[Rfam]
RNA sequence: GGGCACAGAGUUGCAGUUGAUUGAAACUAAAUCAUGUGCGCUAAGUUGUCCCGAAAGUAUCUUUGGAUUUCUACAAAACAGUGUUCCUUCUUUAGGAUGCUGAUCCGUAGAGAUCUGAACAAAU
Numbered sequence: 001g002g003g004c005a006c007a008g009a010g011u012u013g014c015a016g017u018u019g020a021u022u023g024a025a026a027c028u029a030a031a032u033c034a035u036g037u038g039c040g041c042u043a044a045g046u047u048g049u050c051c052c053g054a055a056a057g058u059a060u061c062u063u064u065g066g067a068u069u070u071c072u073a074c075a076a077a078a079c080a081g082u083g084u085u086c087c088u089u090c091u092u093u094a095g096g097a098u099g100c101u102g103a104u105c106c107g108u109a110g111a112g113a114u115c116u117g118a119a120c121a122a123a124u
Base pairs, nucleotide, nucleotide: 001051002050003049004048005047006045009042010041011040013039014038015037018034019033020032021031022030064117065116066115067114068113069112070111071110072109073108074107079102080101081100082099083098084097085096086095

A member of the RNA family "Caenorhabditis snoRNA ceN45" from Caenorhabditis elegans, 124 nucleotides long.
For this family Rfam cites "Systematic identification of non-coding RNA 2,2,7-trimethylguanosine cap structures in Caenorhabditis elegans" (Jia et al., BMC Mol Biol, 2007).
The family has 4 seed sequences and 13 matches in Rfam 15.1.
The family's consensus secondary structure was predicted with RNAalifold.
The organism belongs to Caenorhabditis, within Eukaryota.